[Rfam]
Description:
The record is a 131-nucleotide RNA sequence from Peromyscus maniculatus, which matches "Small nucleolar RNA SNORA68" in Rfam. It scores 93 bits against the family's covariance model. It is annotated as an H/ACA-box small nucleolar RNA. The organism belongs to Peromyscus maniculatus, within Eukaryota. U68 is a member of the H/ACA class of small nucleolar RNAs (snoRNAs) which act as guides in the the modification of uridines to pseudouridines. For this family Rfam cites "The family of box ACA small nucleolar RNAs is defined by an evolutionarily conserved secondary structure and ubiquitous sequence elements essential for RNA accumulation" (Ganot et al., Genes Dev, 1997).
RNA sequence: AUGGCAUCCAACCCAAGAACUACCGCUGCCUGUAGUAGCUGUUUAAACAGUGGUGCACACAGCAAAGGGGCUUCGUUGCCUUUGGGAGGCUGUCCGGUGCCCCACAGAGUGAGUCAGGAGGUUCUACAGUC
Number, nucleotide and partner (000 for none) at each position: 001a000002u000003g000004g056005c055006a054007u053008c052009c000010a000011a000012c000013c000014c000015a000016a000017g000018a043019a042020c041021u000022a000023c038024c000025g036026c035027u034028g000029c000030c000031u000032g000033u000034a027035g026036u025037a000038g023039c000040u000041g020042u019043u018044u000045a000046a000047a000048c000049a000050g000051u000052g008053g007054u006055g005056c004057a000058c000059a000060c000061a000062g000063c000064a000065a000066a000067g000068g124069g123070g122071c121072u120073u119074c118075g000076u000077u000078g000079c000080c109081u108082u107083u106084g105085g000086g103087a000088g101089g100090c099091u000092g000093u000094c000095c000096g000097g000098u000099g090100c089101c088102c000103c086104a000105c084106a083107g082108a081109g080110u000111g000112a000113g000114u000115c000116a000117g000118g074119a073120g072121g071122u070123u069124c068125u000126a000127c000128a000129g000130u000131c000